[Rfam]
RNA sequence: AUAAUAGGGAAUGGCCGAGCCAUAUUUCCUACUGACUGAAGCAAGUCUGACGCUAUCUACGGAAUUUUGGCCGUUUCAGAAAUAUCUGAAACCAGGGUAUGCUUAGAAAUGAACAUGCCUUCCGUAAAGAAAAGGAGGAACCCCUAUGCAGAA
Numbered sequence: 001a002u003a004a005u006a007g008g009g010a011a012u013g014g015c016c017g018a019g020c021c022a023u024a025u026u027u028c029c030u031a032c033u034g035a036c037u038g039a040a041g042c043a044a045g046u047c048u049g050a051c052g053c054u055a056u057c058u059a060c061g062g063a064a065u066u067u068u069g070g071c072c073g074u075u076u077c078a079g080a081a082a083u084a085u086c087u088g089a090a091a092c093c094a095g096g097g098u099a100u101g102c103u104u105a106g107a108a109a110u111g112a113a114c115a116u117g118c119c120u121u122c123c124g125u126a127a128a129g130a131a132a133a134g135g136a137g138g139a140a141c142c143c144c145u146a147u148g149c150a151g152a153a
Stems, first nucleotide, its partner, number of pairs: 003147001012138001015135002019071004024066001026064004034057002073092007095120007103112003121130002
RNA: Molybdenum/Tungsten riboswitch aptamer (Moco RNA motif)
Organism: Desulfitobacterium hafniense